[Rfam]
RNA sequence: CGUGAUAUAGGUGUUACAAUACAAUCAUUUGUCAUGAUUGCAUGAGCAAAUGAUUGCAUUGGUAACCCGAACAGACAUGAGGAAGUAGCACGAUAGUGCGGAUUCCGAAUGGAUGUAGGAUUGCGGGAGCGAAGCGGAGCAAUCCGUAUAUCACG
Numbered sequence: 001c002g003u004g005a006u007a008u009a010g011g012u013g014u015u016a017c018a019a020u021a022c023a024a025u026c027a028u029u030u031g032u033c034a035u036g037a038u039u040g041c042a043u044g045a046g047c048a049a050a051u052g053a054u055u056g057c058a059u060u061g062g063u064a065a066c067c068c069g070a071a072c073a074g075a076c077a078u079g080a081g082g083a084a085g086u087a088g089c090a091c092g093a094u095a096g097u098g099c100g101g102a103u104u105c106c107g108a109a110u111g112g113a114u115g116u117a118g119g120a121u122u123g124c125g126g127g128a129g130c131g132a133a134g135c136g137g138a139g140c141a142a143u144c145c146g147u148a149u150a151u152c153a154c155g
Base pairs, nucleotide, nucleotide: 001155002154003153004152005151006150007149011067014064017061018060019059020058022056023055024054025053026052027051028050029049030048031047032045033044034043035042036041071116072115073114076111077110078109081106082105083104084103088099089098090097091096118145119144120143121142122141123140124139129135130134
Clostridiales-1 RNA: a 155-nucleotide RNA sequence from Butyrivibrio sp. M55. Rfam 15.1 lists 1,172 matches to the family in 137 species. The base pairs follow the family's consensus structure, which is taken from published work. It scores 112 bits against the family's covariance model.